[Rfam]
RNA sequence: GUCAUGGGGAUCCGCGAUCUCCCCACGAGGCGACAGCCGAAGCUCGCGUUCCACCCGAACCUUGACCGCAAGGAGGAACGCUCUUG
Numbered sequence: 001g002u003c004a005u006g007g008g009g010a011u012c013c014g015c016g017a018u019c020u021c022c023c024c025a026c027g028a029g030g031c032g033a034c035a036g037c038c039g040a041a042g043c044u045c046g047c048g049u050u051c052c053a054c055c056c057g058a059a060c061c062u063u064g065a066c067c068g069c070a071a072g073g074a075g076g077a078a079c080g081c082u083c084u085u086g
Base pairs, nucleotide, nucleotide: 005025006024007023008022009021010020046081047080048079049078050077051076